RNA sequence: UUAGUUAAUGUAAACAUCCUACACUCAGCUGUGAGUGAACAGUGAAGGCUGGGGGAAGGGUGUUUACUUUGACUGG
Numbered sequence: 001u002u003a004g005u006u007a008a009u010g011u012a013a014a015c016a017u018c019c020u021a022c023a024c025u026c027a028g029c030u031g032u033g034a035g036u037g038a039a040c041a042g043u044g045a046a047g048g049c050u051g052g053g054g055g056a057a058g059g060g061u062g063u064u065u066a067c068u069u070u071g072a073c074u075g076g
Base pairs, nucleotide, nucleotide: 002075003074004073005072006071008069010067011066012065013064014063015062016061017060018059019058020057022055024053025052026051027050028049029048030047